RNA sequence: AAGACUCCUUAAUUUCAGGGUUCAUUGCUAGAGAAUUUUUCUUGAGUGGGUAUUGUACUCUUAUUUGUACCCAUAAGCCACGAGGGGGAGGUACAGUGUUCCUUACUGAGUGUGAAACCAAUUCUUGGUAGUGUGUUUUUUCUUUGUAACUGCCAUUGGUUGUUGAUGAUCUAUUUUCUCAUUAUUUGAGAGAGUUAAAAAAAAAAAGGUUAUGUGAGUGGU
Numbered sequence: 001a002a003g004a005c006u007c008c009u010u011a012a013u014u015u016c017a018g019g020g021u022u023c024a025u026u027g028c029u030a031g032a033g034a035a036u037u038u039u040u041c042u043u044g045a046g047u048g049g050g051u052a053u054u055g056u057a058c059u060c061u062u063a064u065u066u067g068u069a070c071c072c073a074u075a076a077g078c079c080a081c082g083a084g085g086g087g088g089a090g091g092u093a094c095a096g097u098g099u100u101c102c103u104u105a106c107u108g109a110g111u112g113u114g115a116a117a118c119c120a121a122u123u124c125u126u127g128g129u130a131g132u133g134u135g136u137u138u139u140u141u142c143u144u145u146g147u148a149a150c151u152g153c154c155a156u157u158g159g160u161u162g163u164u165g166a167u168g169a170u171c172u173a174u175u176u177u178c179u180c181a182u183u184a185u186u187u188g189a190g191a192g193a194g195u196u197a198a199a200a201a202a203a204a205a206a207a208g209g210u211u212a213u214g215u216g217a218g219u220g221g222u
Stems, first nucleotide, its partner, number of pairs: 001043004008033002017029002020026001051067002055064002077222005096210002099207002103203002107199001110172001112171001120161004126155004135150003139146001173196001175193007
Small nucleolar RNA U3: a 222-nucleotide RNA sequence from Cervus elaphus. On this family, see Speckmann et al., Mol Cell Biol 1999: "Nuclear retention elements of U3 small nucleolar RNA". Small nucleolar RNAs (snoRNAs) are involved in the processing and modification of rRNA in the nucleolus. There are two main classes of snoRNAs: the box C/D class, and the box H/ACA class. U3 snoRNA is a member of the box C/D class. Indeed, the box C/D element is a subset of the six short sequence elements found in all U3 snoRNAs, namely boxes A, A', B, C, C', and D. The U3 snoRNA secondary structure is characterised by a small 5' domain (with boxes A and A'), and a larger 3' domain (with boxes B, C, C', and D), the two domains being linked by a single-stranded hinge. Boxes B and C form the B/C motif, which appears to be exclusive to U3 snoRNAs, and boxes C' and D form the C'/D motif. The latter is functionally similar to the C/D motifs found in other snoRNAs. The 5' domain and the hinge region act as a pre-rRNA-binding domain. The 3' domain has conserved protein-binding sites. Both the box B/C and box C'/D motifs are sufficient for nuclear retention of U3 snoRNA. The box C'/D motif is also necessary for nucleolar localisation, stability and hyper-methylation of U3 snoRNA. Both box B/C and C'/D motifs are involved in specific protein interactions and are necessary for the rRNA processing functions of U3 snoRNA. Taxonomically the source falls in Cervus elaphus (Eukaryota, Deuterostomia, Amniota, Theria).